RNA sequence: CCUCUUCGAUCUGCUGCGGGCAGAUGAAGUGGAUGUGGGUGUCGAUGCCGCCGGCGGUGAGGAUCAUGCCCUCGCCGGCGAUCACUUCGGUGCUGGCGCCGACGGCGAUGGUCACGUCGGGCUGGAUGUCCGGGUUGCCGGCCUUGCCGAUGGCGGCAAUGCGGCCGUCCUUGAGGCCGACGUCUGCCUUGACCACGCCCCAGUGGUCGAGGAUCAGGGCGUUGGUGAUCAGGGUGUCGACCACAUCGGCCGCCAGCAGCUGGCCCUGGCCCAUGCCGUCGCGG
Numbered sequence: 001c002c003u004c005u006u007c008g009a010u011c012u013g014c015u016g017c018g019g020g021c022a023g024a025u026g027a028a029g030u031g032g033a034u035g036u037g038g039g040u041g042u043c044g045a046u047g048c049c050g051c052c053g054g055c056g057g058u059g060a061g062g063a064u065c066a067u068g069c070c071c072u073c074g075c076c077g078g079c080g081a082u083c084a085c086u087u088c089g090g091u092g093c094u095g096g097c098g099c100c101g102a103c104g105g106c107g108a109u110g111g112u113c114a115c116g117u118c119g120g121g122c123u124g125g126a127u128g129u130c131c132g133g134g135u136u137g138c139c140g141g142c143c144u145u146g147c148c149g150a151u152g153g154c155g156g157c158a159a160u161g162c163g164g165c166c167g168u169c170c171u172u173g174a175g176g177c178c179g180a181c182g183u184c185u186g187c188c189u190u191g192a193c194c195a196c197g198c199c200c201c202a203g204u205g206g207u208c209g210a211g212g213a214u215c216a217g218g219g220c221g222u223u224g225g226u227g228a229u230c231a232g233g234g235u236g237u238c239g240a241c242c243a244c245a246u247c248g249g250c251c252g253c254c255a256g257c258a259g260c261u262g263g264c265c266c267u268g269g270c271c272c273a274u275g276c277c278g279u280c281g282c283g284g
Base pairs, nucleotide, nucleotide: 003284005283007281008280009279012158013157014156015155016154017153018076019075022072023071030053031052032051034050035049037048039046040045057069058068059067077148078147081144085140090138091137092136094132095130096129097128099125100124102123106119107117164270165269166268167267170263171262173260176257185221186220187219188218189217190216191215200209223255224254225253230248234246235245236244

Shown here is a 284-nucleotide sequence from Metapseudomonas resinovorans, a member of the family "5' ureB small RNA". The organism belongs to Metapseudomonas resinovorans, within Bacteria. The literature on the family includes a 2013 paper in J Bacteriol by Wen et al., "Helicobacter pylori 5'ureB-sRNA, a cis-encoded antisense small RNA, negatively regulates ureAB expression by transcription termination". A search with the family's covariance model found it, with a score of 134 bits.